[Rfam]
RNA sequence: AUCACGCCGUACCGCGAGAUCUCCCUCCGCUCCACUCCUGACGCCACUUCCCCGGCGGCAGGCGAGAGAGCGGAUGGGGAUCUGGCGGUACGGCGUCAUGGUC
Dot-bracket structure: .........((((((..((.((((.((((((((.(.((((.(((..........))).)))).).).))))))).)))).))..)))))).............